[Rfam]
RNA sequence: UGCCAUUGCUAAGUCAAGGCUUCUCCUGCGGCUUCAAGCUGUGUUAUUCACUAUGGGAGAUCGUCUGUUACAGCUCUGGCAGAUUGACGCUAGUCCGCGCCGACCUUCUUUCUGAAGCAAGGCUGAUUGGUUUUCGUUUUGAAGACCGAUCGUUAAGGACCAAGCAGUGUUCUGUUUUUGAGUUGAGUCCUGCCUCCGCUGUUCAAGUGGCAUCAUAGCAGGUCUCUUAGUAACAUUUCACACAUCA
Numbered sequence: 001u002g003c004c005a006u007u008g009c010u011a012a013g014u015c016a017a018g019g020c021u022u023c024u025c026c027u028g029c030g031g032c033u034u035c036a037a038g039c040u041g042u043g044u045u046a047u048u049c050a051c052u053a054u055g056g057g058a059g060a061u062c063g064u065c066u067g068u069u070a071c072a073g074c075u076c077u078g079g080c081a082g083a084u085u086g087a088c089g090c091u092a093g094u095c096c097g098c099g100c101c102g103a104c105c106u107u108c109u110u111u112c113u114g115a116a117g118c119a120a121g122g123c124u125g126a127u128u129g130g131u132u133u134u135c136g137u138u139u140u141g142a143a144g145a146c147c148g149a150u151c152g153u154u155a156a157g158g159a160c161c162a163a164g165c166a167g168u169g170u171u172c173u174g175u176u177u178u179u180g181a182g183u184u185g186a187g188u189c190c191u192g193c194c195u196c197c198g199c200u201g202u203u204c205a206a207g208u209g210g211c212a213u214c215a216u217a218g219c220a221g222g223u224c225u226c227u228u229a230g231u232a233a234c235a236u237u238u239c240a241c242a243c244a245u246c247a
Stems, first nucleotide, its partner, number of pairs: 003079003017066004022060005028042005090164002093160004099123003105117004125151012167241003173235003185226003191220003197209004
RNA: Small nucleolar RNA snR191